The family of this 82-nucleotide RNA from Gadus morhua is "mir-128 microRNA precursor family".
RNA sequence: GAGUGUCUGGGGACGGGGCCGGGGCGCUGUCUGAGAGGCCCUAUGAUUCUCACAGUGAACCGGUCUCUUUUCCUGCCCCUCC
Numbered sequence: 001g002a003g004u005g006u007c008u009g010g011g012g013a014c015g016g017g018g019c020c021g022g023g024g025c026g027c028u029g030u031c032u033g034a035g036a037g038g039c040c041c042u043a044u045g046a047u048u049c050u051c052a053c054a055g056u057g058a059a060c061c062g063g064u065c066u067c068u069u070u071u072c073c074u075g076c077c078c079c080u081c082c
Stems, first nucleotide, its partner, number of pairs: 007075001009073002015067007025057006033051003
The source organism's lineage runs through Eukaryota, Metazoa, Actinopteri, Gadariae and Gadus. A reference for the family is Chen et al. (2005), "The developmental miRNA profiles of zebrafish as determined by small RNA cloning", Genes Dev.